[Rfam]
RNA sequence: GUUGCUUCUUCUGGUGAACAUCCUUUUUUAUAUUGAAGUUGGGGAUGUUCUUGUUUCCGAAGCAUAUAUCAAAUUUUCUUAUUUAGCCAGUUUUAAACAGCGUGCUGUAAUCUUUUUUAAGCUACAUUGCGCUACCUGUCUACUGGUACAAUG
Numbered sequence: 001g002u003u004g005c006u007u008c009u010u011c012u013g014g015u016g017a018a019c020a021u022c023c024u025u026u027u028u029u030a031u032a033u034u035g036a037a038g039u040u041g042g043g044g045a046u047g048u049u050c051u052u053g054u055u056u057c058c059g060a061a062g063c064a065u066a067u068a069u070c071a072a073a074u075u076u077u078c079u080u081a082u083u084u085a086g087c088c089a090g091u092u093u094u095a096a097a098c099a100g101c102g103u104g105c106u107g108u109a110a111u112c113u114u115u116u117u118u119a120a121g122c123u124a125c126a127u128u129g130c131g132c133u134a135c136c137u138g139u140c141u142a143c144u145g146g147u148a149c150a151a152u153g
Base pairs, nucleotide, nucleotide: 003064004063005062006061007060008059016050017049018048019047021044022043023042024041086147087146088145089144090143091142099133100132101131103129104128106126107125
The record is a 153-nucleotide RNA sequence from Arachis hypogaea, which matches "small nucleolar RNA snoR137" in Rfam.
By type it is an H/ACA-box small nucleolar RNA.
The base pairs follow the family's consensus structure, which was predicted with RNAalifold.